[Rfam]
RNA: Nematode snoRNA ceN39
RNA sequence: UGGGCGGAUAGGAACCAGAUAAUGUUCAUGCGUUAUUUGGGCCGAAAACCGCCGAAAGCACAUGAUAUUUUCAAGGUCGUAUGUGUCACUAUCUCGUGACAUGUAUAUCACCAAAAUAUCAUACAAGA
Numbered sequence: 001u002g003g004g005c006g007g008a009u010a011g012g013a014a015c016c017a018g019a020u021a022a023u024g025u026u027c028a029u030g031c032g033u034u035a036u037u038u039g040g041g042c043c044g045a046a047a048a049c050c051g052c053c054g055a056a057a058g059c060a061c062a063u064g065a066u067a068u069u070u071u072c073a074a075g076g077u078c079g080u081a082u083g084u085g086u087c088a089c090u091a092u093c094u095c096g097u098g099a100c101a102u103g104u105a106u107a108u109c110a111c112c113a114a115a116a117u118a119u120c121a122u123a124c125a126a127g128a
Base pairs, nucleotide, nucleotide: 003053004052005051006050007049011043012042015040016039017038018037019036020035021034022033023032024031025030064120065119066118067117068116069115070114071113075112076111077110079106080105082103083102084101085100086099087098088097089096